Rfam assigns this 82-nucleotide sequence from Hordeum vulgare to the family "mir-877 microRNA precursor family". Rfam links the family to the GO terms RISC complex and miRNA-mediated post-transcriptional gene silencing. Pairs were carried over by alignment from the consensus structure, which was predicted with RNAalifold. Lineage of the source: Eukaryota > Liliopsida > Triticodae > Triticeae > Hordeum vulgare. Rfam 15.1 lists 186 matches to the family in 115 species.

RNA sequence: AAAGAGGAGGAGGAGGAGGAGGAGGAGAAGGACUAGAAGGCUAUGGACCUUCUAGUCCUUCUCCUCCUCCUCCUCCUCCUCC
Number, nucleotide and partner (000 for none) at each position: 001a000002a000003a000004g078005a077006g076007g075008a074009g073010g072011a071012g000013g069014a000015g067016g066017a065018g064019g063020a062021g061022g060023a059024g058025g000026a056027g000028a000029a000030g000031g000032a000033c000034u054035a053036g052037a051038a050039g049040g048041c046042u000043a000044u000045g000046g041047a000048c040049c039050u038051u037052c036053u035054a034055g000056u026057c000058c024059u023060u022061c021062u020063c019064c018065u017066c016067c015068u000069c013070c000071u011072c010073c009074u008075c007076c006077u005078c004079c000080u000081c000082c000